tRNA: a 69-nucleotide RNA.
RNA sequence: GUUCUUGUAGUUGAAUGACAACGAUGGUUUUUCAUAUCAUUAGUCAUGGUUAGAUUCCAUGUAAGAAUA
Numbered sequence: 001g002u003u004c005u006u007g008u009a010g011u012u013g014a015a016u017g018a019c020a021a022c023g024a025u026g027g028u029u030u031u032u033c034a035u036a037u038c039a040u041u042a043g044u045c046a047u048g049g050u051u052a053g054a055u056u057c058c059a060u061g062u063a064a065g066a067a068u069a
Base pairs, nucleotide, nucleotide: 001068002067003066004065005064006063007062010022011021012020013019024040025039026038027037028036045061046060047059048058049057